[Rfam]
RNA sequence: GUCAGGAACCCCAUGCAUUCAUGCGGGGGCUUGCGGUUGAGGCAAGCUUACACCUGACCAGAUUUAGCUCGCAAACGAGCUUUGUUGCAGAUGACAUAAGGUACCAGGAGGUGCUUUGUCAGCUAUCUGCUCUACCCGUUCUCGUUAAACAGGGCUACAGGGUUAGCCCGGUGCGUGAAGCGAUACAUCAUCUGCACCAUUGUCGAGGCACACAGUAC
Numbered sequence: 001g002u003c004a005g006g007a008a009c010c011c012c013a014u015g016c017a018u019u020c021a022u023g024c025g026g027g028g029g030c031u032u033g034c035g036g037u038u039g040a041g042g043c044a045a046g047c048u049u050a051c052a053c054c055u056g057a058c059c060a061g062a063u064u065u066a067g068c069u070c071g072c073a074a075a076c077g078a079g080c081u082u083u084g085u086u087g088c089a090g091a092u093g094a095c096a097u098a099a100g101g102u103a104c105c106a107g108g109a110g111g112u113g114c115u116u117u118g119u120c121a122g123c124u125a126u127c128u129g130c131u132c133u134a135c136c137c138g139u140u141c142u143c144g145u146u147a148a149a150c151a152g153g154g155c156u157a158c159a160g161g162g163u164u165a166g167c168c169c170g171g172u173g174c175g176u177g178a179a180g181c182g183a184u185a186c187a188u189c190a191u192c193u194g195c196a197c198c199a200u201u202g203u204c205g206a207g208g209c210a211c212a213c214a215g216u217a218c
Base pairs, nucleotide, nucleotide: 001058002057003056004055005054006053010029011028012026016023017022030046031045032044033043061204062203063202066081067080068079069078070077084198086196087195088194089193090192091191092190093189094188101135102134105129106128107127108126110124111123112122115212117210118209119208120207137182138181139179140178141177143175144174145173149172150171152169153168154167155166156165157164
Dot-bracket structure: ((((((...(((...((....))..).))((((.........))))......))))))..(((..(((((......)))))..(.(((((((((......((..((((.(((..[.[[[[.))).))))....)).(((((.(((...((.((((((......)))))).))))).))).)).....))))))))).)...)))..]]]].]......
Annotation: The family of this 218-nucleotide RNA sequence from Tengunoibacter tsumagoiensis is "HNH endonuclease-associated RNA and ORF (HEARO) RNA". The family's consensus secondary structure is taken from published work. It is annotated as a non-coding RNA gene. For this family Rfam cites "Exceptional structured noncoding RNAs revealed by bacterial metagenome analysis" (Weinberg et al., Nature, 2009).